The family of this 98-nucleotide RNA from Pseudomonas cavernae is "t44 RNA".
RNA sequence: AGCCCGUAAAGCUUAACCCGCACACGUAUCGACACGGUGACCUGGGUGCCUCUCGGCUAGGGCUGGGGGUUGGUCAUCGGGAUGCGUGGAGGCCUAAC
Numbered sequence: 001a002g003c004c005c006g007u008a009a010a011g012c013u014u015a016a017c018c019c020g021c022a023c024a025c026g027u028a029u030c031g032a033c034a035c036g037g038u039g040a041c042c043u044g045g046g047u048g049c050c051u052c053u054c055g056g057c058u059a060g061g062g063c064u065g066g067g068g069g070u071u072g073g074u075c076a077u078c079g080g081g082a083u084g085c086g087u088g089g090a091g092g093c094c095u096a097a098c
Stems, first nucleotide, its partner, number of pairs: 023088008035079008048070005
NCBI's taxonomy places the organism under Bacteria, Pseudomonadati, Pseudomonadota, Gammaproteobacteria, Pseudomonas.
The family's RNA type in Rfam is small RNA.
A reference for the family is Tjaden et al. (2002), "Transcriptome analysis of Escherichia coli using high-density oligonucleotide probe arrays", Nucleic Acids Res.